Rfam assigns this 111-nucleotide RNA from Herbidospora galbida to the family "TPP riboswitch aptamer (THI element)". Lineage of the source: Bacteria > Actinomycetota > Streptosporangiales > Streptosporangiaceae > Herbidospora.
[Rfam]
RNA sequence: UCAUGACAUCGCGGGAGCCCGGCGUACCGGGCUGAGAGUGCGGCUGGGCGGCCGCAGACCGCUUGAACCUGACCGGGUCAUGCCGGCGUAGGGAGAAGGUCUCGCCAUGAC
Numbered sequence: 001u002c003a004u005g006a007c008a009u010c011g012c013g014g015g016a017g018c019c020c021g022g023c024g025u026a027c028c029g030g031g032c033u034g035a036g037a038g039u040g041c042g043g044c045u046g047g048g049c050g051g052c053c054g055c056a057g058a059c060c061g062c063u064u065g066a067a068c069c070u071g072a073c074c075g076g077g078u079c080a081u082g083c084c085g086g087c088g089u090a091g092g093g094a095g096a097a098g099g100u101c102u103c104g105c106c107a108u109g110a111c
Base pairs, nucleotide, nucleotide: 007098009096010095011062012061013060014059017032018031019030020029021028039056040055041054042053043052044051045050068092069091070090071089073086074085075084076083